Source information: This 100-nucleotide RNA sequence from Morella rubra belongs to the Rfam family "MIR398 microRNA precursor family".

RNA sequence: GUACACCCCAGAGGAGUGACAGCUGAGAACACAAGAGGGGCUUGGCCUUAUAAUAGGGUCAGUCCACUUUGUGUUCUCAGGUCACCCCUUUGGGAUUUCC
Numbered sequence: 001g002u003a004c005a006c007c008c009c010a011g012a013g014g015a016g017u018g019a020c021a022g023c024u025g026a027g028a029a030c031a032c033a034a035g036a037g038g039g040g041c042u043u044g045g046c047c048u049u050a051u052a053a054u055a056g057g058g059u060c061a062g063u064c065c066a067c068u069u070u071g072u073g074u075u076c077u078c079a080g081g082u083c084a085c086c087c088c089u090u091u092g093g094g095a096u097u098u099c100c
Stems, first nucleotide, its partner, number of pairs: 007094002011090004016085004025078010
It scores 77 bits against the family's covariance model. The family has 14 seed sequences and 627 matches in Rfam 15.1.